Shown here is a 148-nucleotide RNA from Mesorhizobium sp. Root157, a member of the family "rpsB sRNA". The family has 4 seed sequences and 245 matches in Rfam 15.1.
[Rfam]
RNA sequence: CACACACGGACUUUGGUGUCUGCCGGGAGAAAUCCGGCUGAAACCUCCGGUGGCGGUCAAGACAAUCCCGAAAAGCGCAAGCCUUUCGAUCCGGUGAGUCCGAAGCCGUCAAGUGUCCGUGGAGGUCAACCGGAAAGGAACUAAAGAA
Dot-bracket structure: (.(.(((((((...((......((.(........)))......))......((((((...............................................))))))....)))))))).)........................
Numbered sequence: 001c002a003c004a005c006a007c008g009g010a011c012u013u014u015g016g017u018g019u020c021u022g023c024c025g026g027g028a029g030a031a032a033u034c035c036g037g038c039u040g041a042a043a044c045c046u047c048c049g050g051u052g053g054c055g056g057u058c059a060a061g062a063c064a065a066u067c068c069c070g071a072a073a074a075g076c077g078c079a080a081g082c083c084u085u086u087c088g089a090u091c092c093g094g095u096g097a098g099u100c101c102g103a104a105g106c107c108g109u110c111a112a113g114u115g116u117c118c119g120u121g122g123a124g125g126u127c128a129a130c131c132g133g134a135a136a137g138g139a140a141c142u143a144a145a146g147a148a
Stems, first nucleotide, its partner, number of pairs: 001124001003122001005121007015045002023037002026035001052110006
By type it is a small RNA. The source organism's lineage runs through Bacteria, Pseudomonadati, Alphaproteobacteria, Phyllobacteriaceae and Mesorhizobium. The base pairs follow the family's consensus structure, which is taken from published work.